RNA sequence: ACAGCGCUGAUGAUGAGUUUACAAUGUACUAGGUUGAGUUCUGAUCGACGAACUUUCUUUAUGGUUAGAACGAUGACCACCUAUGUUCCUCUCCAUUUAAGGCGCUAC
Numbered sequence: 001a002c003a004g005c006g007c008u009g010a011u012g013a014u015g016a017g018u019u020u021a022c023a024a025u026g027u028a029c030u031a032g033g034u035u036g037a038g039u040u041c042u043g044a045u046c047g048a049c050g051a052a053c054u055u056u057c058u059u060u061a062u063g064g065u066u067a068g069a070a071c072g073a074u075g076a077c078c079a080c081c082u083a084u085g086u087u088c089c090u091c092u093c094c095a096u097u098u099a100a101g102g103c104g105c106u107a108c
Stems, first nucleotide, its partner, number of pairs: 003106006
Dot-bracket structure: ..((((((............................................................................................))))))..